The family of this 131-nucleotide RNA sequence from Accipiter nisus is "Small nucleolar RNA SNORD22".
The family's RNA type in Rfam is C/D-box small nucleolar RNA.
The base pairs follow the family's consensus structure, which was predicted with PFOLD.
The literature on the family includes a 1996 paper in Nature by Tycowski et al., "A mammalian gene with introns instead of exons generating stable RNA products".
Taxonomically the source falls in Accipiter (Eukaryota, Sauropsida, Dinosauria, Telluraves).

RNA sequence: CCCCCGUGAGGAAAACCCCACGUGUCUGACCCCCUGCCCCCCCACCAGAACCUGCUCAAGGUUGAACCCACUGGUGACAUGGGGAGGGGGGGGAAGACGACGCCUCGUCCUGAGUGGACGGUCUGAGGGGG
Number, nucleotide and partner (000 for none) at each position: 001c130002c129003c128004c127005c000006g000007u000008g000009a000010g000011g000012a000013a000014a000015a000016c000017c000018c000019c000020a000021c000022g000023u000024g000025u000026c000027u000028g000029a000030c000031c000032c000033c000034c000035u000036g000037c000038c000039c000040c000041c000042c000043c000044a000045c000046c000047a000048g000049a000050a000051c000052c000053u000054g000055c000056u000057c000058a000059a000060g000061g000062u000063u000064g000065a000066a000067c000068c000069c000070a000071c000072u000073g000074g000075u000076g000077a000078c000079a000080u000081g000082g000083g000084g000085a000086g000087g000088g000089g000090g000091g000092g000093g000094a000095a000096g000097a000098c000099g000100a000101c000102g000103c000104c000105u000106c000107g000108u000109c000110c000111u000112g000113a000114g000115u000116g000117g000118a000119c000120g000121g000122u000123c000124u000125g000126a000127g004128g003129g002130g001131g000